Rfam assigns this 117-nucleotide sequence from Pistricoccus aurantiacus to the family "ALIL pseudoknot". The match comes from Rfam's covariance-model search (101 bits). Rfam classes the family as a cis-regulatory element. The family's consensus secondary structure is taken from published work.
[Rfam]
RNA sequence: UGCUUUUUUCGCCCAGGCGGAACUCGACCGCAAACCCAAGUGAUGGUCUCGUUCAUUGACGAGCAUCGUGCUCGGUACGGGGUCGAGUCGAUUUGCAGCCAGCUGCCAAUCGCCCCA
Numbered sequence: 001u002g003c004u005u006u007u008u009u010c011g012c013c014c015a016g017g018c019g020g021a022a023c024u025c026g027a028c029c030g031c032a033a034a035c036c037c038a039a040g041u042g043a044u045g046g047u048c049u050c051g052u053u054c055a056u057u058g059a060c061g062a063g064c065a066u067c068g069u070g071c072u073c074g075g076u077a078c079g080g081g082g083u084c085g086a087g088u089c090g091a092u093u094u095g096c097a098g099c100c101a102g103c104u105g106c107c108a109a110u111c112g113c114c115c116c117a
Stems, first nucleotide, its partner, number of pairs: 017031004079116004089112002092109002095106004